Source information
A member of the RNA family "Fluoride riboswitch aptamer (crcB RNA motif)" from a Phycisphaerales bacterium, 82 nucleotides long. NCBI's taxonomy places the organism under Bacteria, Pseudomonadati, Planctomycetota, Phycisphaerae, Phycisphaerales. It scores 43 bits against the family's covariance model.

RNA sequence: UCAUCGCCCGGCGAUGGAGUCCGCCCCGAACCGGCCCGCGCGGCCUGACGCAGCGCGGCGGCCUGAUGACUCCUACCCGGAG
Numbered sequence: 001u002c003a004u005c006g007c008c009c010g011g012c013g014a015u016g017g018a019g020u021c022c023g024c025c026c027c028g029a030a031c032c033g034g035c036c037c038g039c040g041c042g043g044c045c046u047g048a049c050g051c052a053g054c055g056c057g058g059c060g061g062c063c064u065g066a067u068g069a070c071u072c073c074u075a076c077c078c079g080g081a082g
Stems, first nucleotide, its partner, number of pairs: 010025004016073006033063004